The record is a 109-nucleotide sequence from Salmonella enterica, which matches "Salmonella enterica Typhi npcRNA 44" in Rfam. The sequence is in the family's curated seed alignment. The family's consensus secondary structure was predicted with CMfinder. NCBI's taxonomy places the organism under Bacteria, Pseudomonadota, Gammaproteobacteria, Salmonella enterica, Salmonella enterica subsp. enterica serovar Typhi. On this family, see Chinni et al., Nucleic Acids Res 2010: "Experimental identification and characterization of 97 novel npcRNA candidates in Salmonella enterica serovar Typhi".
[Rfam]
RNA sequence: CUUUAAAAAUCUGGAUCAAGCUGAAAAUUGAAACACAGAACAACGAAAGUUGUUCGUGAGUCUCUCAAAUUUUCGCAACACGAUGAUGAAUCGAAAGAAACAUCUUCGG
Numbered sequence: 001c002u003u004u005a006a007a008a009a010u011c012u013g014g015a016u017c018a019a020g021c022u023g024a025a026a027a028u029u030g031a032a033a034c035a036c037a038g039a040a041c042a043a044c045g046a047a048a049g050u051u052g053u054u055c056g057u058g059a060g061u062c063u064c065u066c067a068a069a070u071u072u073u074c075g076c077a078a079c080a081c082g083a084u085g086a087u088g089a090a091u092c093g094a095a096a097g098a099a100a101c102a103u104c105u106u107c108g109g
Stems, first nucleotide, its partner, number of pairs: 020076002023074007034058003038055007081109001085105001